Nucleotides: 210
Base pairs, nucleotide, nucleotide: 004210005209006208007207008206009205010204014200015199016198026187027186028185029184030183031182036121037120038119039118041116043114045112046111047110049108051106052105053104054103055102061097065092067090068089069088070087071086072085073084074083075082076081123136124135125134126133139156140155141154142153143152144151158180159179160178161177163176165174166173
Number, partner (000 for none) and nucleotide at each position: 001000g002000g003000a004210g005209a006208a007207g008206c009205a010204a011000a012000g013000u014200g015199a016198u017000g018000a019000g020000c021000a022000u023000u024000a025000c026187u027186g028185g029184c030183u031182g032000g033000a034000g035000c036121c037120c038119c039118a040000a041116a042000g043114a044000g045112g046111c047110a048000c049108g050000c051106g052105u053104g054103u055102g056000g057000g058000u059000g060000c061097g062000c063000g064000c065092g066000u067090g068089u069088g070087u071086g072085u073084g074083u075082g076081u077000g078000u079000g080000u081076g082075u083074a084073u085072g086071u087070g088069u089068g090067u091000c092065c093000u094000u095000g096000u097061c098000u099000g100000u101000g102055c103054a104053u105052g106051c107000a108049c109000a110047u111046g112045u113000a114043u115000g116041u117000u118039u119038g120037g121036g122000a123136g124135u125134a126133c127000g128000a129000g130000u131000g132000a133126g134125u135124g136123u137000g138000a139156c140155u141154g142153g143152u144151u145000g146000u147000a148000g149000g150000g151144a152143a153142c154141u155140a156139g157000u158180u159179a160178u161177g162000u163176g164000c165174c166173u167000g168000c169000u170000u171000u172000u173166a174165g175000a176163c177161c178160a179159u180158g181000a182031c183030a184029g185028u186027c187026a188000a189000a190000c191000u192000g193000a194000u195000a196000a197000g198016a199015u200014c201000u202000g203000a204010u205009u206008g207007c208006u209005u210004c